small nucleolar RNA snoR114: an 87-nucleotide sequence from Solanum tuberosum. A reference for the family is Chen and Wu (2009), "Mining small RNA sequencing data: a new approach to identify small nucleolar RNAs in Arabidopsis", Nucleic Acids Res.

RNA sequence: GAGCAAUGACGUUUCCUUGCACAAAUUGUGAACGAUUGGGUCGUCACAUAAAUCUGAUAUAAGAUGAGAUAAUGUGUAUCUGAGCUC
Numbered sequence: 001g002a003g004c005a006a007u008g009a010c011g012u013u014u015c016c017u018u019g020c021a022c023a024a025a026u027u028g029u030g031a032a033c034g035a036u037u038g039g040g041u042c043g044u045c046a047c048a049u050a051a052a053u054c055u056g057a058u059a060u061a062a063g064a065u066g067a068g069a070u071a072a073u074g075u076g077u078a079u080c081u082g083a084g085c086u087c
Stems, first nucleotide, its partner, number of pairs: 001087004
The organism belongs to Solanum, within Eukaryota. The match comes from Rfam's covariance-model search (48 bits). Pairs were carried over by alignment from the consensus structure, which was predicted with RNAalifold.